Source information:
The record is an 86-nucleotide RNA sequence from Tetrahymena thermophila, which matches "Selenocysteine transfer RNA" in Rfam. A search with the family's covariance model found it, with a score of 69 bits. The family's consensus secondary structure is taken from published work. Taxonomically the source falls in Tetrahymena thermophila (Eukaryota, Ciliophora, Hymenostomatida, Tetrahymenina).
[Rfam]
RNA sequence: GCUUUGGUGAGUUGGACUGGUGUCCAGGACGGGCUUCAAACCCGUGGGUGUCGAAAGGCACAGGAGUUCGAUUCUCCCUCCGGAGC
Number, nucleotide and partner (000 for none) at each position: 001g086002c085003u084004u083005u082006g081007g080008u000009g078010a000011g000012u027013u026014g025015g024016a023017c022018u000019g000020g000021u000022g017023u016024c015025c014026a013027g012028g000029a045030c044031g043032g042033g041034c000035u000036u000037c000038a000039a000040a000041c033042c032043c031044g030045u029046g000047g000048g061049u060050g059051u058052c057053g000054a000055a000056a000057g052058g051059c050060a049061c048062a000063g077064g076065a075066g074067u000068u000069c000070g000071a000072u000073u000074c066075u065076c064077c063078c009079u000080c007081c006082g005083g004084a003085g002086c001